The family of this 105-nucleotide sequence from Juglans regia is "Small nucleolar RNA snoR97". Lineage of the source: Eukaryota > Magnoliopsida > Gunneridae > rosids > Juglans. Rfam classes the family as an H/ACA-box small nucleolar RNA. Rfam links the family to the GO terms RNA processing and nucleolus. Pairs were carried over by alignment from the consensus structure, which was predicted with WAR.
RNA sequence: GACCCCUAAUGGGUCUAGGGUCUGAAAAACUCAGAAAUUCUGUGUGGUCAUCAGCUUCUUCUCUUGUACAUUACGAGACUGGAGUUAAAUAACGGCACUAUAUUC
Number, nucleotide and partner (000 for none) at each position: 001g000002a000003c000004c000005c000006c000007u000008a000009a000010u000011g000012g000013g000014u000015c000016u000017a000018g000019g000020g000021u000022c000023u000024g000025a000026a000027a000028a000029a000030c000031u000032c000033a000034g000035a000036a000037a000038u000039u000040c000041u000042g098043u097044g096045u095046g000047g093048u000049c000050a000051u000052c000053a086054g085055c084056u083057u082058c081059u000060u078061c077062u076063c075064u000065u000066g000067u000068a000069c000070a000071u000072u000073a000074c000075g063076a062077g061078a060079c000080u000081g058082g057083a056084g055085u054086u053087a000088a000089a000090u000091a000092a000093c047094g000095g045096c044097a043098c042099u000100a000101u000102a000103u000104u000105c000